[Rfam]
RNA sequence: UGCCGCUGAUAACCAGCACGGGCGUCGGAGUUUCUCCACGCCCGUGCACGCAUGUUAAGGGCAGGACAAAAACA
Dot-bracket structure: .(..........)..(((((((((..(((.....))).)))))))))...........................
Numbered sequence: 001u002g003c004c005g006c007u008g009a010u011a012a013c014c015a016g017c018a019c020g021g022g023c024g025u026c027g028g029a030g031u032u033u034c035u036c037c038a039c040g041c042c043c044g045u046g047c048a049c050g051c052a053u054g055u056u057a058a059g060g061g062c063a064g065g066a067c068a069a070a071a072a073c074a
Stems, first nucleotide, its partner, number of pairs: 002013001016047009027037003